[Rfam]
RNA sequence: CCUUCCAAGGAGCGUUGCAGCGGCGGCCCACAUCAAGAGGCCCGCCGUCAGGCUUGGAAGGCGCCCUGCCGGCCGGGGCGCAAGCCGCAAACGACGCUCACCUGAC
Numbered sequence: 001c002c003u004u005c006c007a008a009g010g011a012g013c014g015u016u017g018c019a020g021c022g023g024c025g026g027c028c029c030a031c032a033u034c035a036a037g038a039g040g041c042c043c044g045c046c047g048u049c050a051g052g053c054u055u056g057g058a059a060g061g062c063g064c065c066c067u068g069c070c071g072g073c074c075g076g077g078g079c080g081c082a083a084g085c086c087g088c089a090a091a092c093g094a095c096g097c098u099c100a101c102c103u104g105a106c
Stems, first nucleotide, its partner, number of pairs: 002060007021047006

Rfam assigns this 106-nucleotide sequence from Variovorax paradoxus to the family "SAH (S-adenosyl-L-homocysteine) riboswitch aptamer". A reference for the family is Wang et al. (2008), "Riboswitches that sense S-adenosylhomocysteine and activate genes involved in coenzyme recycling", Mol Cell. A search with the family's covariance model found it, with a score of 56 bits. Lineage of the source: Bacteria > Pseudomonadati > Pseudomonadota > Betaproteobacteria > Variovorax.